[Rfam]
RNA sequence: AACGCUGCGUUUCUAUGCUACAAACAGAUUUGCGCUGGUUCGCCCACACAUAUCAGAUCAUCAGAUCGUCACUUUGCAUAUGAGAAAUUCGGAGUACUCUUCAACAUCACCUUCCUCCCAUUCCCCUCGGGGCGUGGUGAUAGGUCUGCCCGCGAGGGUUCGGCGCGAUACGCGUCUGCAAUUGGCAUCAGAAAAGCAGGGCACGUCUCUCCUCACAUACCAUCCCCUCACGGGGGUGGGAAAGUGGAGAGUGCUUGUUCCUAUGGGAGAGCCGUUGCGAAGAUUGUGUGUGCUGAGGCAUGACACUUAAGUGCAAUACGCAGCGUGCCUUUUCUCGCAGUCACUUGUGGCUGUGGGUUGGGUACAAUUCGAUUCCGAUUACUCUGUU
Number, nucleotide and partner (000 for none) at each position: 001a000002a000003c000004g000005c000006u000007g000008c000009g000010u000011u000012u000013c000014u080015a079016u078017g077018c000019u000020a000021c000022a000023a000024a000025c000026a000027g067028a066029u065030u064031u063032g062033c000034g000035c000036u000037g000038g000039u000040u000041c000042g000043c000044c000045c000046a000047c000048a000049c000050a000051u000052a000053u000054c000055a000056g000057a000058u000059c000060a000061u000062c032063a031064g030065a029066u028067c027068g000069u000070c000071a000072c000073u000074u000075u000076g000077c017078a016079u015080a014081u000082g000083a000084g000085a000086a000087a000088u000089u000090c377091g376092g375093a374094g373095u000096a000097c000098u000099c282100u281101u280102c279103a000104a000105c000106a000107u000108c000109a000110c000111c000112u000113u000114c000115c000116u000117c000118c000119c000120a000121u000122u000123c000124c000125c000126c000127u000128c000129g000130g000131g000132g000133c000134g000135u000136g000137g000138u000139g000140a000141u000142a000143g000144g000145u000146c000147u000148g159149c158150c157151c156152g000153c000154g000155a000156g151157g150158g149159u148160u000161c000162g176163g175164c174165g173166c172167g000168a000169u000170a000171c000172g166173c165174g164175u163176c162177u000178g278179c277180a276181a275182u000183u000184g273185g272186c271187a000188u000189c000190a000191g000192a000193a000194a000195a000196g000197c000198a262199g261200g260201g000202c000203a000204c000205g000206u000207c000208u000209c000210u000211c000212c000213u000214c000215a000216c000217a000218u000219a000220c000221c000222a000223u000224c000225c000226c000227c000228u000229c000230a000231c000232g000233g000234g000235g000236g000237u000238g000239g000240g000241a000242a000243a000244g000245u000246g000247g000248a000249g000250a000251g000252u000253g000254c000255u000256u000257g000258u000259u000260c200261c199262u198263a000264u000265g000266g000267g000268a000269g000270a000271g186272c185273c184274g000275u181276u180277g179278c178279g102280a101281a100282g099283a000284u000285u000286g000287u000288g000289u000290g000291u000292g000293c000294u000295g000296a000297g000298g000299c000300a000301u000302g000303a000304c000305a000306c000307u000308u000309a000310a000311g000312u000313g000314c000315a000316a000317u000318a000319c000320g000321c000322a000323g000324c000325g365326u364327g363328c362329c361330u360331u000332u000333u000334c000335u000336c000337g000338c000339a000340g000341u000342c000343a000344c000345u000346u000347g000348u000349g000350g000351c000352u000353g000354u000355g000356g000357g000358u000359u000360g330361g329362g328363u327364a326365c325366a000367a000368u000369u000370c000371g000372a000373u094374u093375c092376c091377g090378a000379u000380u000381a000382c000383u000384c000385u000386g000387u000388u000

The family of this 388-nucleotide sequence from Cadophora sp. DSE1049 is "Nuclear RNase P".
The family's RNA type in Rfam is ribozyme.
Clan: RNaseP clan.
Lineage of the source: Eukaryota > Dikarya > sordariomyceta > Leotiomycetes > Cadophora.
The literature on the family includes a 2002 paper in Annu Rev Biochem by Xiao et al., "Eukaryotic Ribonuclease P: A Plurality of Ribonucleoprotein Enzymes".
Rfam's curators write: Ribonuclease P (RNase P) is a ubiquitous endoribonuclease, found in archaea, bacteria and eukarya as well as chloroplasts and mitochondria. Its best characterised activity is the generation of mature 5'-ends of tRNAs by cleaving the 5'-leader elements of precursor-tRNAs. Cellular RNase Ps are ribonucleoproteins. RNA from bacterial RNase Ps retains its catalytic activity in the absence of the protein subunit, i.e. it is a ribozyme.